RNA sequence: GCUGUAAUGUGUGCACAGUUUUCAUCUGUGUCUGGUAGCAGUGUCUGUCUGUGUUUUGCAUUCAGAUUUUGCUAUUCACAUAAAUACCCUGCAGCCAAAGAGUGACUUGGGAUCAUAGUACUGGUCUAGUGUCGUCUCUUUGGACACAUUCACCACUGGCCAGCCUCCAAAUUCCCAUACAUAA
Dot-bracket structure: ............(((.............(((.(((((((((.(((((..(((.....)))..))))).)))))).))).))).......)))...............(((((........((((((.((((..((.((....)).))......)))))))))).........))))).......

Shown here is a 184-nucleotide sequence from Chrysochloris asiatica, a member of the family "Small nucleolar RNA SNORA23". Taxonomically the source falls in Chrysochloris (Eukaryota, Chordata, Gnathostomata, Sarcopterygii). About the family: The members of this family belong to the H/ACA class of snoRNAs which are thought to guide the sites of modification of uridines to pseudouridines. This family includes human snoRNA ACA23 (SNORA23) and mouse snoMBI-1. ACA23 is predicted to guide the pseudouridylation of residue U3737 and U4331 of 28S rRNA. The literature on the family includes a 2001 paper in EMBO J by Huttenhofer et al., "RNomics: an experimental approach that identifies 201 candidates for novel, small, non-messenger RNAs in mouse". The family's consensus secondary structure was predicted with RNAalifold. Its family is annotated with RNA processing and nucleolus in the Gene Ontology.